[Rfam]
RNA sequence: GAGCUUGUGAUGAUUCUGGUCCGAAAGGAUCUUACCGGAUUUCUGUGAGGCGAUUCUGUCACCGUUGAUCGCUUAAUGUUGUUGGACAUACUGAAGCUU
Numbered sequence: 001g002a003g004c005u006u007g008u009g010a011u012g013a014u015u016c017u018g019g020u021c022c023g024a025a026a027g028g029a030u031c032u033u034a035c036c037g038g039a040u041u042u043c044u045g046u047g048a049g050g051c052g053a054u055u056c057u058g059u060c061a062c063c064g065u066u067g068a069u070c071g072c073u074u075a076a077u078g079u080u081g082u083u084g085g086a087c088a089u090a091c092u093g094a095a096g097c098u099u
Base pairs, nucleotide, nucleotide: 001099002098003097004096005095
Shown here is a 99-nucleotide sequence from Leersia perrieri, a member of the family "Small nucleolar RNA R11/Z151". Gene Ontology terms of the family: RNA processing and nucleolus. Pairs were carried over by alignment from the consensus structure, which was predicted with PFOLD. A search with the family's covariance model found it, with a score of 65 bits.